[Rfam]
RNA sequence: UUGAGAACCAUUUGAAUCCAGUAGUGAUUCAAAUGGUUCUCAAAAA
Numbered sequence: 001u002u003g004a005g006a007a008c009c010a011u012u013u014g015a016a017u018c019c020a021g022u023a024g025u026g027a028u029u030c031a032a033a034u035g036g037u038u039c040u041c042a043a044a045a046a
Stems, first nucleotide, its partner, number of pairs: 001043018
RNA: Plastid-ccsA-ndhD-1 3UTR RNA
Organism: Chloranthus spicatus